[Rfam]
RNA: GlmZ RNA activator of glmS mRNA
Organism: Photorhabdus laumondii
RNA sequence: ACAGUUGCUCAUUCAGCUUCUUAUGUCGGCCCACAUUAGGUGGAGAAAUGCCACAUAAACUAUCGAAUGAUGCCAGAGUAAGGUGCCUACCGUCCAACUCAGUGAUAUCGCUUUCGAGCCUUAUCAAACAUCGGGCGACACGUGGAGUGAGGCACCACCUAUGUCUGACUGUAGAUAAACAACAGGCAUAAGUCACCCUCACUGGCGGGAUAGUAGCAAAAACUAUUAUCCCGUCGUC
Numbered sequence: 001a002c003a004g005u006u007g008c009u010c011a012u013u014c015a016g017c018u019u020c021u022u023a024u025g026u027c028g029g030c031c032c033a034c035a036u037u038a039g040g041u042g043g044a045g046a047a048a049u050g051c052c053a054c055a056u057a058a059a060c061u062a063u064c065g066a067a068u069g070a071u072g073c074c075a076g077a078g079u080a081a082g083g084u085g086c087c088u089a090c091c092g093u094c095c096a097a098c099u100c101a102g103u104g105a106u107a108u109c110g111c112u113u114u115c116g117a118g119c120c121u122u123a124u125c126a127a128a129c130a131u132c133g134g135g136c137g138a139c140a141c142g143u144g145g146a147g148u149g150a151g152g153c154a155c156c157a158c159c160u161a162u163g164u165c166u167g168a169c170u171g172u173a174g175a176u177a178a179a180c181a182a183c184a185g186g187c188a189u190a191a192g193u194c195a196c197c198c199u200c201a202c203u204g205g206c207g208g209g210a211u212a213g214u215a216g217c218a219a220a221a222a223c224u225a226u227u228a229u230c231c232c233g234u235c236g237u238c
Stems, first nucleotide, its partner, number of pairs: 001079002006075001007073002009070004014065001016064001019057001022053001027050001082156007092136004104125004166201003206233011